The family of this 212-nucleotide sequence from Drosophila willistoni is "R2 RNA element". This family represents the 3' UTR region of the R2 retrotransposable element. This family is known to interact with the R2-encoded reverse transcriptase in a reaction known as target primed reverse transcription (TPRT). The match comes from Rfam's covariance-model search (114 bits). NCBI's taxonomy places the organism under Eukaryota, Panarthropoda, Brachycera, Acalyptratae, Sophophora.
[Rfam]
RNA sequence: AUGUACUAACCUCUAGUUUCUCUUAUACUUUUGCCGUCUACCUUGGCAUUCUAUCUAAAAAGGUACAAACAUCGCAUUGUCAAAAAGAGGUCGUUUUAGUGCGUAGGCGCUGUGGGACUUCAUUAUCCCGAUGAUGCAGCGAAUCGUGCAUACGAGAUUGUCCAGUAGUUGGUUGCUCGUAUCUUUAGAAGAUAGCCAAAUGACUCGUCAUC
Numbered sequence: 001a002u003g004u005a006c007u008a009a010c011c012u013c014u015a016g017u018u019u020c021u022c023u024u025a026u027a028c029u030u031u032u033g034c035c036g037u038c039u040a041c042c043u044u045g046g047c048a049u050u051c052u053a054u055c056u057a058a059a060a061a062g063g064u065a066c067a068a069a070c071a072u073c074g075c076a077u078u079g080u081c082a083a084a085a086a087g088a089g090g091u092c093g094u095u096u097u098a099g100u101g102c103g104u105a106g107g108c109g110c111u112g113u114g115g116g117a118c119u120u121c122a123u124u125a126u127c128c129c130g131a132u133g134a135u136g137c138a139g140c141g142a143a144u145c146g147u148g149c150a151u152a153c154g155a156g157a158u159u160g161u162c163c164a165g166u167a168g169u170u171g172g173u174u175g176c177u178c179g180u181a182u183c184u185u186u187a188g189a190a191g192a193u194a195g196c197c198a199a200a201u202g203a204c205u206c207g208u209c210a211u212c
Stems, first nucleotide, its partner, number of pairs: 039065006071211002074208002087206003091198001093196001099149005108141006114129004151181006